Rfam assigns this 82-nucleotide RNA sequence from Shouchella clausii to the family "BsrC". Rfam classes the family as a small RNA. On this family, see Saito et al., Gene 2008: "Novel small RNA-encoding genes in the intergenic regions of Bacillus subtilis". The 301 nucleotide sequence from Kouji Nakamura has been trimmed to a highly conserved ~85 nucleotide long core to form this family.
RNA sequence: ACAAGACAACGAAAGCCCUUCCUCUCGAUCGUCCUUGCGGCUCCGAGGCCGCGCCAGUUUGAAUUGCAUGUACAAAAAGUCU
Dot-bracket structure: ............................(((..(((((((((....)))))))..))..)))....................